Description: This 175-nucleotide sequence from Streptomyces olivoverticillatus belongs to the Rfam family "Streptomyces sRNA scr5239". Pairs were carried over by alignment from the consensus structure, which is taken from published work.

[Rfam]
RNA sequence: CUUCCGUCCCCUCCGCACAAGGGGAGGGAGCGAGGCCGGACGCUCUCUGCCCUGACCGCGCCGCGGCCUGACGUCGGCCCGUCCGGCUGCGGGGCCCGCACACCCCGCGCCCCCGGACCGGCCGAUACGGCUCCGGGCUGCGGCACCGACCGGGUUGAGGGUCCCGGCCGGUCGC
Numbered sequence: 001c002u003u004c005c006g007u008c009c010c011c012u013c014c015g016c017a018c019a020a021g022g023g024g025a026g027g028g029a030g031c032g033a034g035g036c037c038g039g040a041c042g043c044u045c046u047c048u049g050c051c052c053u054g055a056c057c058g059c060g061c062c063g064c065g066g067c068c069u070g071a072c073g074u075c076g077g078c079c080c081g082u083c084c085g086g087c088u089g090c091g092g093g094g095c096c097c098g099c100a101c102a103c104c105c106c107g108c109g110c111c112c113c114c115g116g117a118c119c120g121g122c123c124g125a126u127a128c129g130g131c132u133c134c135g136g137g138c139u140g141c142g143g144c145a146c147c148g149a150c151c152g153g154g155u156u157g158a159g160g161g162u163c164c165c166g167g168c169c170g171g172u173c174g175c
Stems, first nucleotide, its partner, number of pairs: 003029003008024005033069004038064001039062001042059002044055002074125006083116003130144003134140002148169001150167005